Rfam assigns this 150-nucleotide RNA sequence from Helicobacter didelphidarum to the family "Bacterial antisense RNA HPnc0260". A reference for the family is Sharma et al. (2010), "The primary transcriptome of the major human pathogen Helicobacter pylori", Nature. Pairs were carried over by alignment from the consensus structure, which was predicted with CMfinder. A search with the family's covariance model found it, with a score of 72 bits. Lineage of the source: Bacteria > Epsilonproteobacteria > Campylobacterales > Helicobacteraceae > Helicobacter.
RNA sequence: CCGAUACUAAUAUCAAACCAUUGUUUAAUUGUUAGAAUAUAUAAAAUAAAUAGAAUUGUUUUUAUUUCAAAAAAUAAAAUCUUAAGUAAAUUGAAAGUAAAGUAUAAUGUAUGGUGGUUGCGACUGGACUCGAACCAGCGACCCCUACCA
Numbered sequence: 001c002c003g004a005u006a007c008u009a010a011u012a013u014c015a016a017a018c019c020a021u022u023g024u025u026u027a028a029u030u031g032u033u034a035g036a037a038u039a040u041a042u043a044a045a046a047u048a049a050a051u052a053g054a055a056u057u058g059u060u061u062u063u064a065u066u067u068c069a070a071a072a073a074a075u076a077a078a079a080u081c082u083u084a085a086g087u088a089a090a091u092u093g094a095a096a097g098u099a100a101a102g103u104a105u106a107a108u109g110u111a112u113g114g115u116g117g118u119u120g121c122g123a124c125u126g127g128a129c130u131c132g133a134a135c136c137a138g139c140g141a142c143c144c145c146u147a148c149c150a
Base pairs, nucleotide, nucleotide: 024049025048030043031042032041065079066078067077112147113146114145116143117142121140122139124138125137126136127135